[Rfam]
Record summary: int-alpA RNA: a 69-nucleotide RNA from Rhodopirellula sp. MGV. Taxonomically the source falls in Rhodopirellula (Bacteria, Planctomycetota, Planctomycetia, Pirellulaceae). From the family's description: Acidobacteria (1 example), Planctomycetes (1 example), Proteobacteria. The family has 167 seed sequences and 577 matches in Rfam 15.1. A search with the family's covariance model found it, with a score of 39 bits.

RNA sequence: UAGCGGGAUAGGUUUGCUCCCGAAAAGCGGUUUCCCUACCGCCUGCCCGCUAUCGUCUCAAUUCUAGGG
Dot-bracket structure: (((((((...((.......)).....((((...[[[[[))))...)))))))............]]]]]